[Rfam]
RNA sequence: GGCCUCCUUCUGUGGGGUGAUUGAUUGCAGGGCCCCCAGAUCAAUUGCCCUGCAGAGGGAGGCC
Numbered sequence: 001g002g003c004c005u006c007c008u009u010c011u012g013u014g015g016g017g018u019g020a021u022u023g024a025u026u027g028c029a030g031g032g033c034c035c036c037c038a039g040a041u042c043a044a045u046u047g048c049c050c051u052g053c054a055g056a057g058g059g060a061g062g063c064c
Stems, first nucleotide, its partner, number of pairs: 001064026030037002
The record is a 64-nucleotide RNA from Cnephaeus nilssonii, which matches "mir-9242 microRNA precursor family" in Rfam. NCBI's taxonomy places the organism under Eukaryota, Craniata, Yangochiroptera, Vespertilionidae, Cnephaeus. Pairs were carried over by alignment from the consensus structure, which was predicted with RNAalifold. Its family is annotated with miRNA-mediated post-transcriptional gene silencing and RISC complex in the Gene Ontology.